[Rfam]
RNA sequence: GGAAAGAGAGGGAUUCGAACCCUCGGUACGAAUAAAUCGUACAACAGAUUAG
Numbered sequence: 001g002g003a004a005a006g007a008g009a010g011g012g013a014u015u016c017g018a019a020c021c022c023u024c025g026g027u028a029c030g031a032a033u034a035a036a037u038c039g040u041a042c043a044a045c046a047g048a049u050u051a052g
Stems, first nucleotide, its partner, number of pairs: 008024005026042006
Overview
This 52-nucleotide sequence from Erythropalum scandens belongs to the Rfam family "Plastid-psbl-rps4 3UTR RNA". By type it is a cis-regulatory element. About the family: Plastid psbl-rps4-psbC is a non-coding RNA (ncRNA) present in plastids. It is compose of two short stem-loops in tandem in the terminal 3 prime untranslate region (3UTR) mostly in psbl and rps4 seed plants genes. Taxonomically the source falls in Erythropalum (Eukaryota, Tracheophyta, Euphyllophyta, Santalales). The literature on the family includes a 2023 paper in Plant Commun by Richter et al., "Retrograde signaling in plants: A critical review focusing on the GUN pathway and beyond".